This 219-nucleotide sequence from Tengunoibacter tsumagoiensis belongs to the Rfam family "HNH endonuclease-associated RNA and ORF (HEARO) RNA". It scores 145 bits against the family's covariance model. Rfam 15.1 lists 952 matches to the family in 249 species. A reference for the family is Weinberg et al. (2009), "Exceptional structured noncoding RNAs revealed by bacterial metagenome analysis", Nature. The organism belongs to Tengunoibacter, within Bacteria.
RNA sequence: GUCAGGAACCCCAUAGCUGAAGCUAGGGGCUUGUCUUUCGAAGCAGGCCCACCUGACCAGUCUUGGUCUUGAAAUAGAGACUCCGUUCGGCAAGAAAUUAGGUACCAGGGGGUGCAUGCCAGCCCCCUGCUCUACGGUCGGCGAUUAAACAGGCCUACAAGGGUUAAGCCAGUGUUGCCGACGCCAAACCUUGCCGAACAUUGACGAGGCACCCAUUAC
Numbered sequence: 001g002u003c004a005g006g007a008a009c010c011c012c013a014u015a016g017c018u019g020a021a022g023c024u025a026g027g028g029g030c031u032u033g034u035c036u037u038u039c040g041a042a043g044c045a046g047g048c049c050c051a052c053c054u055g056a057c058c059a060g061u062c063u064u065g066g067u068c069u070u071g072a073a074a075u076a077g078a079g080a081c082u083c084c085g086u087u088c089g090g091c092a093a094g095a096a097a098u099u100a101g102g103u104a105c106c107a108g109g110g111g112g113u114g115c116a117u118g119c120c121a122g123c124c125c126c127c128u129g130c131u132c133u134a135c136g137g138u139c140g141g142c143g144a145u146u147a148a149a150c151a152g153g154c155c156u157a158c159a160a161g162g163g164u165u166a167a168g169c170c171a172g173u174g175u176u177g178c179c180g181a182c183g184c185c186a187a188a189c190c191u192u193g194c195c196g197a198a199c200a201u202u203g204a205c206g207a208g209g210c211a212c213c214c215a216u217u218a219c
Stems, first nucleotide, its partner, number of pairs: 001057006010029002012026001016023002030047004060205003065082005085199010102135002106129008117211004137182009149173002152170002155168002157165001